A member of the RNA family "Clostridiales-1 RNA" from Butyrivibrio sp. XB500-5, 222 nucleotides long. The match comes from Rfam's covariance-model search (81 bits). Rfam classes the family as a small RNA.

RNA sequence: CGAUAAAAGUCAUGAGUAAACACAGUUUUUUUGUGCUUGCACAAUAAAAACUGUGUUUAUGAAAGGACUGAACGUACAUGAGGAAAAAGACAUGCGAACGUAGAGAGCAGGUCGAUUUCCGAGGCCAGUAGUACUUAACGAGGUACGAGUUUAGUACUACUCCCACAGCGUGCUGUACGUAGGAUUGCGAGAAUGCGAAGCAUGUAGCAAUCCGUAUUAUCG
Numbered sequence: 001c002g003a004u005a006a007a008a009g010u011c012a013u014g015a016g017u018a019a020a021c022a023c024a025g026u027u028u029u030u031u032u033g034u035g036c037u038u039g040c041a042c043a044a045u046a047a048a049a050a051c052u053g054u055g056u057u058u059a060u061g062a063a064a065g066g067a068c069u070g071a072a073c074g075u076a077c078a079u080g081a082g083g084a085a086a087a088a089g090a091c092a093u094g095c096g097a098a099c100g101u102a103g104a105g106a107g108c109a110g111g112u113c114g115a116u117u118u119c120c121g122a123g124g125c126c127a128g129u130a131g132u133a134c135u136u137a138a139c140g141a142g143g144u145a146c147g148a149g150u151u152u153a154g155u156a157c158u159a160c161u162c163c164c165a166c167a168g169c170g171u172g173c174u175g176u177a178c179g180u181a182g183g184a185u186u187g188c189g190a191g192a193a194u195g196c197g198a199a200g201c202a203u204g205u206a207g208c209a210a211u212c213c214g215u216a217u218u219a220u221c222g
Stems, first nucleotide, its partner, number of pairs: 001222006010067002013064001016060015031044005072180007182213007193203004

Source information
The family's consensus secondary structure is taken from published work.